The family of this 68-nucleotide RNA sequence from Comamonas sp. BIGb0124 is "Xanthine riboswitch aptamer (NMT1 RNA)". The base pairs follow the family's consensus structure, which is taken from published work. Gene Ontology term of the family: purine nucleobase binding.
[Rfam]
RNA sequence: GCCGAGAGUAGAAGCGUUCAGCACAGCGCCUGCGCAGCAGGCCGGAUCGGCGGGUCAUUGCUCUUGAA
Numbered sequence: 001g002c003c004g005a006g007a008g009u010a011g012a013a014g015c016g017u018u019c020a021g022c023a024c025a026g027c028g029c030c031u032g033c034g035c036a037g038c039a040g041g042c043c044g045g046a047u048c049g050g051c052g053g054g055u056c057a058u059u060g061c062u063c064u065u066g067a068a
Base pairs, nucleotide, nucleotide: 005064006063007062008061009060010059015053019054021051022050025047027045